Rfam assigns this 94-nucleotide RNA sequence from Vibrio viridaestus to the family "Qrr RNA". This family represents a set of small RNAs (the Qrr RNAs) that are thought to be involved in the regulation of quorum sensing in Vibrio species. It is believed that these RNAs, guided by a protein, Hfq, can mediate the destabilisation of the quorum-sensing master regulators LuxR/HapR mRNAs. The match comes from Rfam's covariance-model search (84 bits). Rfam classes the family as a small RNA.
Nucleotides: 094
Stems, first nucleotide, its partner, number of pairs: 001016006032063004038053006064084008
Number, partner (000 for none) and nucleotide at each position: 001016u002015g003014a004013c005012c006011c007000g008000a009000a010000a011006g012005g013004g014003u015002c016001a017000c018000c019000u020000a021000g022000c023000c024000a025000a026000c027000u028000g029000a030000c031000g032063u033062u034061g035060u036000u037000a038053g039052u040051g041050a042049a043048u044000a045000a046000u047000u048043a049042u050041u051040c052039a053038c054000a055000a056000a057000a058000u059000g060035a061034u062033a063032g064084c065083c066082a067081a068080u069079a070078g071077a072000g073000a074000g075000u076000u077071u078070c079069u080068a081067u082066u083065g084064g085000c086000u087000u088000u089000u090000u091000u092000u093000u094000u